[Rfam]
RNA sequence: ACGCAGGAAAGGAGGUGGUCCGAAAGAUGAUUUCUCUCAGGACUGGCGAGGUGGCCGUCCGCUAGGACGACGCUCGCGUUCGCGACGUCGUUCGCCGCGAAUCCACGACGGACACCCGGACCCCGGGUCGCCGGAACUCGUCCGACCGGCCCCACCCCCUCGGUGGGAGGACACCCGGGGUCUGCCCCUG
Numbered sequence: 001a002c003g004c005a006g007g008a009a010a011g012g013a014g015g016u017g018g019u020c021c022g023a024a025a026g027a028u029g030a031u032u033u034c035u036c037u038c039a040g041g042a043c044u045g046g047c048g049a050g051g052u053g054g055c056c057g058u059c060c061g062c063u064a065g066g067a068c069g070a071c072g073c074u075c076g077c078g079u080u081c082g083c084g085a086c087g088u089c090g091u092u093c094g095c096c097g098c099g100a101a102u103c104c105a106c107g108a109c110g111g112a113c114a115c116c117c118g119g120a121c122c123c124c125g126g127g128u129c130g131c132c133g134g135a136a137c138u139c140g141u142c143c144g145a146c147c148g149g150c151c152c153c154a155c156c157c158c159c160u161c162g163g164u165g166g167g168a169g170g171a172c173a174c175c176c177g178g179g180g181u182c183u184g185c186c187c188c189u190g
Stems, first nucleotide, its partner, number of pairs: 014059006060099003067091002070088003117184012130150005

Annotation: Shown here is a 190-nucleotide RNA sequence from Nocardiopsis sp. NRRL B-16309, a member of the family "Actinobacteria sRNA Ms_IGR-5". It scores 76 bits against the family's covariance model. The base pairs follow the family's consensus structure. For this family Rfam cites "Identification of small RNAs in Mycobacterium smegmatis using heterologous Hfq" (Li et al., RNA, 2013). Lineage of the source: Bacteria > Bacillati > Actinomycetes > Streptosporangiales > Nocardiopsis.